RNA sequence: CCUUCCUUGAUGAUCCAUAAAAUAUGACUUUCGUUCUUCUGAGCUUGCUGAAGCCAUGUUUUUGAUCUGAGAAGG
Numbered sequence: 001c002c003u004u005c006c007u008u009g010a011u012g013a014u015c016c017a018u019a020a021a022a023u024a025u026g027a028c029u030u031u032c033g034u035u036c037u038u039c040u041g042a043g044c045u046u047g048c049u050g051a052a053g054c055c056a057u058g059u060u061u062u063u064g065a066u067c068u069g070a071g072a073a074g075g
Stems, first nucleotide, its partner, number of pairs: 001075003005071001